[Rfam]
RNA sequence: AGAGUUCGCCAGGCAAUCGCCGCUCCUGUAAAGGAGGGGAGGAAAGUCCGGGCUCCAUAGAGCAGGGUGCCAGGUAAUGCCUGGGGGGCGUAAGCCUACGGAAAGUGCAGCAGAGAGCAGACCGCCUACGUUUUCUGUUUACAGAAAGCCGGUAAGGGUGAAAGGGUGCGGUAAGAGCGCACCGCGUGAGUGGCAACAUUUCACGGCAUGGUAAACCCCACCUGGAGCAAGACCAAAUAGGAAUCCACGAAGGUAUGGCUCAUAUCGGAUUCGGGUAGGUCGCUCGAGGCCUGUGGCGACGCAGGUCCUAGAUGAAUGAUUGUCCACGACAAAACCCGGCUUAUCGGCGAACUCUACAA
Numbered sequence: 001a002g003a004g005u006u007c008g009c010c011a012g013g014c015a016a017u018c019g020c021c022g023c024u025c026c027u028g029u030a031a032a033g034g035a036g037g038g039g040a041g042g043a044a045a046g047u048c049c050g051g052g053c054u055c056c057a058u059a060g061a062g063c064a065g066g067g068u069g070c071c072a073g074g075u076a077a078u079g080c081c082u083g084g085g086g087g088g089c090g091u092a093a094g095c096c097u098a099c100g101g102a103a104a105g106u107g108c109a110g111c112a113g114a115g116a117g118c119a120g121a122c123c124g125c126c127u128a129c130g131u132u133u134u135c136u137g138u139u140u141a142c143a144g145a146a147a148g149c150c151g152g153u154a155a156g157g158g159u160g161a162a163a164g165g166g167u168g169c170g171g172u173a174a175g176a177g178c179g180c181a182c183c184g185c186g187u188g189a190g191u192g193g194c195a196a197c198a199u200u201u202c203a204c205g206g207c208a209u210g211g212u213a214a215a216c217c218c219c220a221c222c223u224g225g226a227g228c229a230a231g232a233c234c235a236a237a238u239a240g241g242a243a244u245c246c247a248c249g250a251a252g253g254u255a256u257g258g259c260u261c262a263u264a265u266c267g268g269a270u271u272c273g274g275g276u277a278g279g280u281c282g283c284u285c286g287a288g289g290c291c292u293g294u295g296g297c298g299a300c301g302c303a304g305g306u307c308c309u310a311g312a313u314g315a316a317u318g319a320u321u322g323u324c325c326a327c328g329a330c331a332a333a334a335c336c337c338g339g340c341u342u343a344u345c346g347g348c349g350a351a352c353u354c355u356a357c358a359a
Stems, first nucleotide, its partner, number of pairs: 001355010011344001012324007020039002023036005044342003048339005053227004060261004065223005070084005085099001086097004100218002105216002107212002122157002124153003129148001131146004165183006184207001185205005190199003231281004241272006252266005288307008
Shown here is a 359-nucleotide sequence from Amphritea japonica, a member of the family "Bacterial RNase P class A". Rfam links the family to the GO terms ribonuclease P activity, dimeric ribonuclease P complex and tRNA processing.